[Rfam]
RNA sequence: CAGGAAAAAGGCAAACCAGAUCGAAAGACUGGGACGCAAAGCCACGGGUCUUCUGCAUGCGUGCAAUGAUCGCCGGGUUACCCUCU
Numbered sequence: 001c002a003g004g005a006a007a008a009a010g011g012c013a014a015a016c017c018a019g020a021u022c023g024a025a026a027g028a029c030u031g032g033g034a035c036g037c038a039a040a041g042c043c044a045c046g047g048g049u050c051u052u053c054u055g056c057a058u059g060c061g062u063g064c065a066a067u068g069a070u071c072g073c074c075g076g077g078u079u080a081c082c083c084u085c086u
Base pairs, nucleotide, nucleotide: 003083004082011037012036016032017031018030019029021028022027035072040079041078042077043076045075046074047073048070049069050068
Annotation: A member of the RNA family "c-di-GMP-I-GGC riboswitch aptamer" from Cohnella lubricantis, 86 nucleotides long. A search with the family's covariance model found it, with a score of 62 bits. The family has 40 seed sequences and 1,298 matches in Rfam 15.1.